U11 spliceosomal RNA: a 137-nucleotide RNA sequence from Aplysia californica.
Rfam 15.1 lists 2,595 matches to the family in 1,202 species.
The family is grouped with related families in Rfam's "U1 clan".
The family's RNA type in Rfam is spliceosomal small nuclear RNA.
NCBI's taxonomy places the organism under Eukaryota, Mollusca, Heterobranchia, Euthyneura, Aplysia.
RNA sequence: UAAAAGGGCCUCUGCCGAUCAUGGCACACGGGAUGGCUAAACGGCCGUAAGUCCUGUGCGGAAUCGCAAUCAAGAGAUUUCGGAGGCAAAAUUUUUAUAUCUUGAGGCUGCUGGUGCUCGCUAUGCCCGGCGCCCUU
Numbered sequence: 001u002a003a004a005a006g007g008g009c010c011u012c013u014g015c016c017g018a019u020c021a022u023g024g025c026a027c028a029c030g031g032g033a034u035g036g037c038u039a040a041a042c043g044g045c046c047g048u049a050a051g052u053c054c055u056g057u058g059c060g061g062a063a064u065c066g067c068a069a070u071c072a073a074g075a076g077a078u079u080u081c082g083g084a085g086g087c088a089a090a091a092u093u094u095u096u097a098u099a100u101c102u103u104g105a106g107g108c109u110g111c112u113g114g115u116g117c118u119c120g121c122u123a124u125g126c127c128c129g130g131c132g133c134c135c136u137u
Base pairs, nucleotide, nucleotide: 008087009086010085011084012083013026014025015024016023017022027058028057029056030055031054032053033052034051035046036045037044038043059082060081061080062079063078064077065076106134107133108132110131111130112129113128114127116126117125